[Rfam]
Record summary:
This 119-nucleotide sequence from Bradyrhizobium ivorense belongs to the Rfam family "Repression of heat shock gene expression (ROSE) element". Its family is annotated with regulation of translation and response to temperature stimulus in the Gene Ontology. Lineage of the source: Bacteria > Pseudomonadota > Alphaproteobacteria > Hyphomicrobiales > Bradyrhizobium. For this family Rfam cites "A mRNA-based thermosensor controls expression of rhizobial heat shock genes" (Nocker et al., Nucleic Acids Res, 2001). Rfam's curators write: This family represents a 5' UTR cis-regulatory element found in heat shock mRNAs and is known as the ROSE (repression of heat shock gene expression) element. The ROSE element is a negative regulator of heat shock gene expression. The secondary structure is thought to be regulated by temperature. This regulation blocks access to the ribosome binding site under normal conditions. The family has 13 seed sequences and 381 matches in Rfam 15.1.

RNA sequence: CCGAACGCCUCCUUGGGUUCGGCGCGGGCGCCGGGCGGGAGUCUUCGGAUCCUGUCUGAAACCCCUGUCUUGCGCUCCUUCGUAUCCAUCUUGCUCUUUGGAGGACUUGGUUAUGAGGA
Numbered sequence: 001c002c003g004a005a006c007g008c009c010u011c012c013u014u015g016g017g018u019u020c021g022g023c024g025c026g027g028g029c030g031c032c033g034g035g036c037g038g039g040a041g042u043c044u045u046c047g048g049a050u051c052c053u054g055u056c057u058g059a060a061a062c063c064c065c066u067g068u069c070u071u072g073c074g075c076u077c078c079u080u081c082g083u084a085u086c087c088a089u090c091u092u093g094c095u096c097u098u099u100g101g102a103g104g105a106c107u108u109g110g111u112u113a114u115g116a117g118g119a
Stems, first nucleotide, its partner, number of pairs: 001022006008016002026077006033070007079117006086110003091105002094103003